[Rfam]
RNA sequence: UGAUUUGUGAUGUAAUGGGUUAGCAUAAGAGACUUUGACUCUCUUUGUUCAGGUUCGAAUCCUGACAAAUCAA
Numbered sequence: 001u002g003a004u005u006u007g008u009g010a011u012g013u014a015a016u017g018g019g020u021u022a023g024c025a026u027a028a029g030a031g032a033c034u035u036u037g038a039c040u041c042u043c044u045u046u047g048u049u050c051a052g053g054u055u056c057g058a059a060u061c062c063u064g065a066c067a068a069a070u071c072a073a
Stems, first nucleotide, its partner, number of pairs: 001072007010026004028044005049065005
This 73-nucleotide RNA from Flavobacterium sp. 9AF belongs to the Rfam family "tRNA". Rfam's curators write: Transfer RNA (tRNA) molecules are approximately 80 nucleotides in length. It is annotated as a transfer RNA. NCBI's taxonomy places the organism under Bacteria, Pseudomonadati, Bacteroidota, Flavobacteriales, Flavobacterium. Its Rfam clan is "tRNA clan".